[Rfam]
RNA sequence: AUUUAGCUAUGCAUCUACGAGUAAGACCUAGACAAAACGCAUGAAGAGGACCAUAAUUGGUCCUAGAACGGCCUGAGGUACAGGGGUUUAAGUCGGUAGAUUCGAGGACUUCUUCCCCGGGAAUCCGACACUACCCAGUCGUACGGACGGCUGGGUGUCUUUUGAAGAUUUCCCUUCUUCAACGAAA
Number, nucleotide and partner (000 for none) at each position: 001a000002u000003u000004u000005a000006g000007c000008u000009a000010u000011g000012c000013a000014u000015c000016u000017a000018c000019g000020a000021g000022u000023a000024a000025g051026a000027c049028c048029u047030a000031g000032a000033c000034a000035a000036a000037a000038c000039g000040c000041a000042u000043g000044a000045a000046g000047a029048g028049g027050a000051c025052c000053a000054u000055a000056a000057u186058u185059g000060g183061u182062c000063c000064u000065a000066g000067a000068a000069c000070g000071g000072c000073c000074u181075g180076a179077g178078g177079u000080a000081c000082a000083g000084g174085g173086g172087u000088u000089u000090a000091a000092g129093u128094c127095g126096g125097u000098a000099g000100a000101u121102u120103c119104g118105a000106g116107g115108a114109c000110u000111u000112c000113u000114u108115c107116c106117c000118c104119g103120g102121g101122a000123a000124u000125c096126c095127g094128a093129c092130a000131c157132u000133a156134c155135c154136c153137a152138g000139u000140c000141g000142u000143a000144c000145g000146g000147a000148c000149g000150g000151c000152u137153g136154g135155g134156u133157g131158u000159c000160u000161u000162u000163u000164g000165a000166a000167g000168a000169u000170u000171u000172c086173c085174c084175u000176u000177c078178u077179u076180c075181a074182a061183c060184g000185a058186a057187a000
Rfam assigns this 187-nucleotide RNA from Agrilus planipennis to the family "R2 RNA element".
Rfam's curators write: This family represents the 3' UTR region of the R2 retrotransposable element. This family is known to interact with the R2-encoded reverse transcriptase in a reaction known as target primed reverse transcription (TPRT).
The match comes from Rfam's covariance-model search (47 bits).
The base pairs follow the family's consensus structure, which is taken from published work.
The literature on the family includes a 2004 paper in RNA by Ruschak et al., "Secondary structure models of the 3' untranslated regions of diverse R2 RNAs".